RNA sequence: GUGAGUCAGGAAGAGGAAGAGAGAGCCUAAGGACAGUGGGAGUGGGAACAUGAUGGAAAGGCUGACCUGUUUAUUUCCUCUAACCAUGGGGGAUAACAUCAUGCUUUCCGAUGCCUCCCAUUCCUAUUGUUCUUAAGCACCCCUUUCCUUUUCCUUUUUGUC
Numbered sequence: 001g002u003g004a005g006u007c008a009g010g011a012a013g014a015g016g017a018a019g020a021g022a023g024a025g026c027c028u029a030a031g032g033a034c035a036g037u038g039g040g041a042g043u044g045g046g047a048a049c050a051u052g053a054u055g056g057a058a059a060g061g062c063u064g065a066c067c068u069g070u071u072u073a074u075u076u077c078c079u080c081u082a083a084c085c086a087u088g089g090g091g092g093a094u095a096a097c098a099u100c101a102u103g104c105u106u107u108c109c110g111a112u113g114c115c116u117c118c119c120a121u122u123c124c125u126a127u128u129g130u131u132c133u134u135a136a137g138c139a140c141c142c143c144u145u146u147c148c149u150u151u152u153c154c155u156u157u158u159u160g161u162c
Stems, first nucleotide, its partner, number of pairs: 009153005015147003021142001023140001026137001028135008037126011049113003055109006
RNA: MIR2118 microRNA precursor family